[Rfam]
RNA sequence: CGUCACCUUGCUGGAGAGAGGUCGCCGCCCCGCGGGGAAGGCGAUCCACCGAAGGAGCAAACCCGCCGCAUCCCCACGGAUGAGGCGGGCGAAUCUCUCAGGUAAAAGGGACAGCAGGGGCCGC
Number, nucleotide and partner (000 for none) at each position: 001c000002g000003u000004c000005a000006c119007c118008u117009u116010g115011c114012u113013g112014g000015a000016g000017a000018g000019a000020g046021g045022u044023c043024g042025c041026c040027g000028c000029c000030c000031c000032g000033c000034g000035g000036g000037g000038a000039a000040g026041g025042c024043g023044a022045u021046c020047c000048a103049c102050c101051g099052a098053a000054g000055g097056a096057g095058c000059a000060a000061a000062c089063c088064c087065g086066c085067c084068g000069c000070a000071u000072c000073c000074c000075c000076a000077c000078g000079g000080a000081u000082g000083a000084g067085g066086c065087g064088g063089g062090c000091g000092a000093a000094u000095c057096u056097c055098u052099c051100a000101g050102g049103u048104a000105a000106a000107a000108g000109g000110g000111a000112c013113a012114g011115c010116a009117g008118g007119g006120g000121c000122c000123g000124c000
RNA: Glycine riboswitch aptamer